[Rfam]
RNA sequence: AGAACCAAAGCCAAACCUGUCGCGAGGCAGGGACGGAAAGCCACGGGUCCCGGAACGGGACAGCCGGGUUGCCUUCG
Numbered sequence: 001a002g003a004a005c006c007a008a009a010g011c012c013a014a015a016c017c018u019g020u021c022g023c024g025a026g027g028c029a030g031g032g033a034c035g036g037a038a039a040g041c042c043a044c045g046g047g048u049c050c051c052g053g054a055a056c057g058g059g060a061c062a063g064c065c066g067g068g069u070u071g072c073c074u075u076c077g
Base pairs, nucleotide, nucleotide: 003074011036012035016031017030018029019028020027021026034063039070040069041068042067044066045065046064047061048060049059
Dot-bracket structure: ..(.......((...((((((....))))))..[))..((((.((((((.........))).])))))))...)...
The record is a 77-nucleotide RNA from Desulfonatronum sp. SC1, which matches "c-di-GMP-I-GGC riboswitch aptamer" in Rfam. Taxonomically the source falls in Desulfonatronum (Bacteria, Pseudomonadati, Desulfovibrionales, Desulfonatronaceae).